[Rfam]
RNA: Small nucleolar RNA SNORD28
Organism: Castor canadensis
RNA sequence: GUCAAAAAAAUAAAAACAAAAGCAUGUCACAGGCUUCUGAUGCUCUGUGAGGUGUGAGAGUUAAUGGUAUAUUAGAGUUCUGAUGGCA
Dot-bracket structure: ((((...............................................................................)))).